Rfam assigns this 78-nucleotide RNA sequence from Hyella patelloides to the family "Glutamine riboswitch aptamer (glnA leader)".
Its family is annotated with glutamine binding in the Gene Ontology.
It scores 54 bits against the family's covariance model.
For this family Rfam cites "Bacterial aptamers that selectively bind glutamine" (Ames and Breaker, RNA Biol, 2011).

[Rfam]
RNA sequence: AUCGUUCAUCUCAUCAAUUGUUUUAUCGCAAAAUAGAGAGAGACGGAAGUAAGUUUGAAUAAACUGAAGGAACGCAAU
Number, nucleotide and partner (000 for none) at each position: 001a000002u000003c074004g073005u072006u071007c070008a000009u043010c042011u041012c040013a000014u000015c000016a000017a000018u000019u000020g000021u000022u000023u000024u000025a000026u000027c000028g000029c000030a000031a000032a000033a000034u000035a000036g000037a000038g000039a000040g012041a011042g010043a009044c000045g000046g075047a000048a000049g000050u000051a000052a065053g064054u063055u062056u061057g000058a000059a000060u000061a056062a055063a054064c053065u052066g000067a000068a000069g000070g007071a006072a005073c004074g003075c046076a000077a000078u000